[Rfam]
RNA sequence: UGUCGUGUUUACGACCACCAAUGUUUCAGCGGUCUGUGAGAAACGCCUUCGGGUGGCUGCAAAAGAAUUCUCCCGCAGCCUGAAAGGGAGAGCAUAUUGAAUGUGGUACAUCUGCACACCUUUGAAAGCAGAUAUCGCAAGUCACAAGCGCAC
Numbered sequence: 001u002g003u004c005g006u007g008u009u010u011a012c013g014a015c016c017a018c019c020a021a022u023g024u025u026u027c028a029g030c031g032g033u034c035u036g037u038g039a040g041a042a043a044c045g046c047c048u049u050c051g052g053g054u055g056g057c058u059g060c061a062a063a064a065g066a067a068u069u070c071u072c073c074c075g076c077a078g079c080c081u082g083a084a085a086g087g088g089a090g091a092g093c094a095u096a097u098u099g100a101a102u103g104u105g106g107u108a109c110a111u112c113u114g115c116a117c118a119c120c121u122u123u124g125a126a127a128g129c130a131g132a133u134a135u136c137g138c139a140a141g142u143c144a145c146a147a148g149c150g151c152a153c
Stems, first nucleotide, its partner, number of pairs: 002015005023044005029060006045054003069091005075109001077107001079106002092104003111132005117150001119148001121147002136141001
RNA: STAXI RNA